[Rfam]
RNA: SAM riboswitch aptamer (S box leader)
Nucleotides: 111
Stems, first nucleotide, its partner, number of pairs: 001111008013043001016042003022033003030078001044073004049069002051065004084100006
Number, partner (000 for none) and nucleotide at each position: 001111c002110u003109c004108u005107u006106a007105u008104u009000c010000c011000g012000a013043g014000c015000u016042g017041g018040u019000g020000g021000a022033g023032g024031g025000g026000g027000c028000a029000g030078g031024c032023c033022c034000u035000a036000u037000g038000a039000a040018a041017c042016c043013c044073g045072g046071c047070a048000a049069c050068c051065u052064g053063c054062u055000g056000u057000u058000a059000u060000g061000c062054a063053g064052c065051g066000a067000a068050g069049g070047u071046g072045c073044c074000a075000a076000a077000c078030c079000u080000g081000a082000a083000a084100c085099a086098a087097g088096g089095c090000g091000c092000a093000g094000g095089g096088c097087c098086u099085u100084g101000g102000a103000u104008g105007a106006u107005a108004a109003g110002a111001g